[Rfam]
RNA sequence: AAUAAAAAUCCGAAUUAUACCUGUAUAAGUUUCUAAUAUGGAGAAAUGUUUCUACGGAGCACCUUAAAAAGCUCUACUAUAGGUUAAUAUUGAAUUUAU
Numbered sequence: 001a002a003u004a005a006a007a008a009u010c011c012g013a014a015u016u017a018u019a020c021c022u023g024u025a026u027a028a029g030u031u032u033c034u035a036a037u038a039u040g041g042a043g044a045a046a047u048g049u050u051u052c053u054a055c056g057g058a059g060c061a062c063c064u065u066a067a068a069a070a071g072c073u074c075u076a077c078u079a080u081a082g083g084u085u086a087a088u089a090u091u092g093a094a095u096u097u098a099u
Stems, first nucleotide, its partner, number of pairs: 019084007029047006056075005
Shown here is a 99-nucleotide sequence from Clostridium thermobutyricum, a member of the family "Purine riboswitch aptamer". The base pairs follow the family's consensus structure, which is taken from published work. The match comes from Rfam's covariance-model search (62 bits). Lineage of the source: Bacteria > Bacillati > Bacillota > Eubacteriales > Clostridium.